[Rfam]
RNA: glmS glucosamine-6-phosphate activated ribozyme aptamer
RNA sequence: CCAUUGUCCAAAGCGCCAGGGCUUAACAUCCAUACGGAAUGUUAAGCUGACGAGGAUCAGGGUUUAUCGAAGCAUCGGCGGAUGCCCUGCGGUUGAUCACGACCGAAACCGGCUUUUAAAACUUUGAAGUGAUUCAGAGGACAAAGAGGUCGCGGUGAUGAA
Dot-bracket structure: ...................((((((((.(.........).)))))))).........(((((....((((....))))......)))))((((((....))))))....((((((......(((((((....))))))).......))))))..........
Numbered sequence: 001c002c003a004u005u006g007u008c009c010a011a012a013g014c015g016c017c018a019g020g021g022c023u024u025a026a027c028a029u030c031c032a033u034a035c036g037g038a039a040u041g042u043u044a045a046g047c048u049g050a051c052g053a054g055g056a057u058c059a060g061g062g063u064u065u066a067u068c069g070a071a072g073c074a075u076c077g078g079c080g081g082a083u084g085c086c087c088u089g090c091g092g093u094u095g096a097u098c099a100c101g102a103c104c105g106a107a108a109c110c111g112g113c114u115u116u117u118a119a120a121a122c123u124u125u126g127a128a129g130u131g132a133u134u135c136a137g138a139g140g141a142c143a144a145a146g147a148g149g150u151c152g153c154g155g156u157g158a159u160g161a162a
Stems, first nucleotide, its partner, number of pairs: 020048008029039001058089005067078004090105006110152006122139007